This 100-nucleotide sequence from Kitasatospora cheerisanensis belongs to the Rfam family "che1 RNA". Taxonomically the source falls in Kitasatospora cheerisanensis (Bacteria, Actinomycetes, Streptomycetaceae, Kitasatospora). A search with the family's covariance model found it, with a score of 56 bits.
RNA sequence: AGGACAGGGGGGUAAACCGCAGAUCCCACGCGGCGGUUCCUGGCCUCGGCGGUCGCGCAGCCCGCGCGCUCGCACGGUUGUCGCUCGGGGGUGAUCGCCG
Numbered sequence: 001a002g003g004a005c006a007g008g009g010g011g012g013u014a015a016a017c018c019g020c021a022g023a024u025c026c027c028a029c030g031c032g033g034c035g036g037u038u039c040c041u042g043g044c045c046u047c048g049g050c051g052g053u054c055g056c057g058c059a060g061c062c063c064g065c066g067c068g069c070u071c072g073c074a075c076g077g078u079u080g081u082c083g084c085u086c087g088g089g090g091g092u093g094a095u096c097g098c099c100g
Stems, first nucleotide, its partner, number of pairs: 001046003005042004015038006051071002054068005